[Rfam]
RNA sequence: CUGGUGCACCUCGUAUUCUAUGGGCCUUCUUUCAAGACCCUGAAAUAAAUUUUGGAGACCCGUCAUUCCGAUGGCGGGUG
Numbered sequence: 001c002u003g004g005u006g007c008a009c010c011u012c013g014u015a016u017u018c019u020a021u022g023g024g025c026c027u028u029c030u031u032u033c034a035a036g037a038c039c040c041u042g043a044a045a046u047a048a049a050u051u052u053u054g055g056a057g058a059c060c061c062g063u064c065a066u067u068c069c070g071a072u073g074g075c076g077g078g079u080g
Stems, first nucleotide, its partner, number of pairs: 022040003026036003058079009
Dot-bracket structure: .....................(((.(((.....))).))).................(((((((((....))))))))).
The record is an 80-nucleotide sequence from Caenorhabditis remanei, which matches "SmY spliceosomal RNA" in Rfam. The source organism's lineage runs through Eukaryota, Eumetazoa, Ecdysozoa, Rhabditida and Caenorhabditis. Rfam 15.1 lists 408 matches to the family in 67 species.